[Rfam]
RNA sequence: GAUUUGAUAGUAUGGUAGAAAGAUUCCUAAGAAUCUUUCUACCAUACUAUCGAUUAGAUUAGUAUUUUUUUUUUUCGUGUAGGAAGUUGUACUA
Number, nucleotide and partner (000 for none) at each position: 001g000002a000003u000004u000005u000006g051007a050008u049009a048010g047011u046012a045013u044014g043015g042016u041017a040018g039019a038020a037021a036022g035023a034024u033025u032026c031027c000028u000029a000030a000031g026032a025033a024034u023035c022036u021037u020038u019039c018040u017041a016042c015043c014044a013045u012046a011047c010048u009049a008050u007051c006052g000053a000054u000055u000056a000057g000058a000059u000060u000061a000062g000063u000064a000065u000066u000067u000068u000069u000070u000071u000072u000073u000074u000075u000076c000077g000078u000079g000080u000081a000082g000083g000084a000085a000086g000087u000088u000089g000090u000091a000092c000093u000094a000
RNA: Plastid-psbM 3UTR RNA
Organism: Spinacia oleracea